A member of the RNA family "Nitrogen stress-induced RNA 1" from Calothrix sp. 336/3, 63 nucleotides long. The match comes from Rfam's covariance-model search (54 bits). The pairing is the family consensus, mapped onto this sequence. On this family, see Ionescu et al., J Mol Biol 2010: "Heterocyst-specific transcription of NsiR1, a non-coding RNA encoded in a tandem array of direct repeats in cyanobacteria". Rfam classes the family as a small RNA. The organism belongs to Calothrix, within Bacteria.
RNA sequence: UGGUAGAUGCACCCUGAUAACUCACUCCCCUUAGUAGCUGCCGGCUACUGGGGGAAUUUUUUU
Numbered sequence: 001u002g003g004u005a006g007a008u009g010c011a012c013c014c015u016g017a018u019a020a021c022u023c024a025c026u027c028c029c030c031u032u033a034g035u036a037g038c039u040g041c042c043g044g045c046u047a048c049u050g051g052g053g054g055a056a057u058u059u060u061u062u063u
Base pairs, nucleotide, nucleotide: 002013003012004011028054029053030052031051032050033049034048035047036046037045